The record is a 91-nucleotide RNA from Labrus bergylta, which matches "mir-7 microRNA precursor family" in Rfam. Gene Ontology terms of the family: RISC complex and miRNA-mediated post-transcriptional gene silencing.
RNA sequence: GAGUCCACAGCAGCGUGGAAGACUAGUGAUUUUGUUGUUUUUUUGUGCUUAAACUGACAACAAGUCAUUGUCUCCCUCACUGCUUUGAGAC
Numbered sequence: 001g002a003g004u005c006c007a008c009a010g011c012a013g014c015g016u017g018g019a020a021g022a023c024u025a026g027u028g029a030u031u032u033u034g035u036u037g038u039u040u041u042u043u044u045g046u047g048c049u050u051a052a053a054c055u056g057a058c059a060a061c062a063a064g065u066c067a068u069u070g071u072c073u074c075c076c077u078c079a080c081u082g083c084u085u086u087g088a089g090a091c
Stems, first nucleotide, its partner, number of pairs: 003091003008087002011082003015078001017076002020073004026068007034061006

Record summary:
Taxonomically the source falls in Labrus (Eukaryota, Bilateria, Euteleostomi, Actinopteri). On this family, see Ambros, Cell 2001: "microRNAs: tiny regulators with great potential". Rfam's curators write: This family represents the microRNA (miRNA) precursor mir-7. Rfam 15.1 lists 2,589 matches to the family in 797 species.